[Rfam]
RNA: MIR8565 microRNA precursor family
RNA sequence: CCCACACCCAUGUGUGUAGGACCUCAAAAGAUCAUUAUUAAAUUUGACACAAAUCUCCAAAAAAGUUAUCAUAUGGGUGUAGAACUUGAUUUUUUUAGAUAUUUGUGCUAAAUUUAAUGGUGAUCUUUUGAGGUCCUACACACAUGGGUGUGAG
Numbered sequence: 001c002c003c004a005c006a007c008c009c010a011u012g013u014g015u016g017u018a019g020g021a022c023c024u025c026a027a028a029a030g031a032u033c034a035u036u037a038u039u040a041a042a043u044u045u046g047a048c049a050c051a052a053a054u055c056u057c058c059a060a061a062a063a064a065g066u067u068a069u070c071a072u073a074u075g076g077g078u079g080u081a082g083a084a085c086u087u088g089a090u091u092u093u094u095u096u097a098g099a100u101a102u103u104u105g106u107g108c109u110a111a112a113u114u115u116a117a118u119g120g121u122g123a124u125c126u127u128u129u130g131a132g133g134u135c136c137u138a139c140a141c142a143c144a145u146g147g148g149u150g151u152g153a154g
Base pairs, nucleotide, nucleotide: 003152004151005150006149007148008147009146010145011144012143013142015140016139017138018137019136020135021134022133023132024131025130026129027128028127030125031124032123034121035120036119037118038117039116040115041114042113043112044111045110046109048107049106050105051104052103053102054101056099057098059096060095061094062093063092064091065090066089067088068087069082071080072079073078